This 563-nucleotide part of an RNA from Parahoeflea phototrophica belongs to the Rfam family "Bacterial large subunit ribosomal RNA". The family's consensus secondary structure is taken from published work. The match comes from Rfam's covariance-model search (2753 bits).

[Rfam]
RNA sequence: GUCAAAAGGGCAUUCGGUGGAUGCCUUGGCAUGCACAGGCGAUGAAGGACGUGAUACGCUGCGAUAAGCGUCGGGGAGCUGCGAAUAAGCUUUGAUCCGACGAUUUCCGAAUGGGGAAACCCACCUUAGAUGCCUAGGAAAACUAAGGUGUUCGUCAAGAACAUCUUAUCUUUCUAGGUAUCGUUACAAGGUAUCUUAUCCUGAAUACAUAGGGGUAAGAAGCGAACGCGGGGAACUGAAACAUCUAAGUACCCGUAGGAAAGGACAUCAACCGAGACUCCGUAAGUAGUGGCGAGCGAACGCGGACCAGGCCAGUGGCAUGAUUAAGUAAAGUGGAACCGUCUGGAAAGUCGGGCCGUAGUGGGUGAUAGCCCCGUACACGUAAUCCUUAGUCAUGUCCUAGAGUAAGGCGGGACACGUGAAAUCCUGUCUGAACGUGGGGGGACCACCCUCCAAGCCUAAGUACUCGUGCAUGACCGAUAGUGAACAAGUACCGUGAGGGAAAGGUGAAAAGCACCCCGACAAGGGGAGUGAAAUAGUACCUGAAACCGGAUGCCUACAAG
Numbered sequence: 001g002u003c004a005a006a007a008g009g010g011c012a013u014u015c016g017g018u019g020g021a022u023g024c025c026u027u028g029g030c031a032u033g034c035a036c037a038g039g040c041g042a043u044g045a046a047g048g049a050c051g052u053g054a055u056a057c058g059c060u061g062c063g064a065u066a067a068g069c070g071u072c073g074g075g076g077a078g079c080u081g082c083g084a085a086u087a088a089g090c091u092u093u094g095a096u097c098c099g100a101c102g103a104u105u106u107c108c109g110a111a112u113g114g115g116g117a118a119a120c121c122c123a124c125c126u127u128a129g130a131u132g133c134c135u136a137g138g139a140a141a142a143c144u145a146a147g148g149u150g151u152u153c154g155u156c157a158a159g160a161a162c163a164u165c166u167u168a169u170c171u172u173u174c175u176a177g178g179u180a181u182c183g184u185u186a187c188a189a190g191g192u193a194u195c196u197u198a199u200c201c202u203g204a205a206u207a208c209a210u211a212g213g214g215g216u217a218a219g220a221a222g223c224g225a226a227c228g229c230g231g232g233g234a235a236c237u238g239a240a241a242c243a244u245c246u247a248a249g250u251a252c253c254c255g256u257a258g259g260a261a262a263g264g265a266c267a268u269c270a271a272c273c274g275a276g277a278c279u280c281c282g283u284a285a286g287u288a289g290u291g292g293c294g295a296g297c298g299a300a301c302g303c304g305g306a307c308c309a310g311g312c313c314a315g316u317g318g319c320a321u322g323a324u325u326a327a328g329u330a331a332a333g334u335g336g337a338a339c340c341g342u343c344u345g346g347a348a349a350g351u352c353g354g355g356c357c358g359u360a361g362u363g364g365g366u367g368a369u370a371g372c373c374c375c376g377u378a379c380a381c382g383u384a385a386u387c388c389u390u391a392g393u394c395a396u397g398u399c400c401u402a403g404a405g406u407a408a409g410g411c412g413g414g415a416c417a418c419g420u421g422a423a424a425u426c427c428u429g430u431c432u433g434a435a436c437g438u439g440g441g442g443g444g445a446c447c448a449c450c451c452u453c454c455a456a457g458c459c460u461a462a463g464u465a466c467u468c469g470u471g472c473a474u475g476a477c478c479g480a481u482a483g484u485g486a487a488c489a490a491g492u493a494c495c496g497u498g499a500g501g502g503a504a505a506g507g508u509g510a511a512a513a514g515c516a517c518c519c520c521g522a523c524a525a526g527g528g529g530a531g532u533g534a535a536a537u538a539g540u541a542c543c544u545g546a547a548a549c550c551g552g553a554u555g556c557c558u559a560c561a562a563g
Stems, first nucleotide, its partner, number of pairs: 008558010023543001024507002028478002030475007037467002039223002047108003050063003069102007078090003113122003123192005194220009227258001228256005238245002268275002278463001279306005289297002309460004319397010330386001333381003339354003343350001357361001363375003408432008439454005494501002517529004